Rfam assigns this 70-nucleotide RNA from Gouania willdenowi to the family "Small nucleolar RNA SNORD59". Its Rfam clan is "SNORD59 clan".
[Rfam]
RNA sequence: UCUUCGUGAUGAUAAUUACAAUGACUUUCGUUCUUCUGAGUUUAAUGAAGCCAUUUUGUUCCUGAGAAGA
Numbered sequence: 001u002c003u004u005c006g007u008g009a010u011g012a013u014a015a016u017u018a019c020a021a022u023g024a025c026u027u028u029c030g031u032u033c034u035u036c037u038g039a040g041u042u043u044a045a046u047g048a049a050g051c052c053a054u055u056u057u058g059u060u061c062c063u064g065a066g067a068a069g070a
Stems, first nucleotide, its partner, number of pairs: 001070003004066001
Description: It is annotated as a C/D-box small nucleolar RNA. The source organism's lineage runs through Eukaryota, Craniata, Actinopterygii, Euteleosteomorpha and Gouania.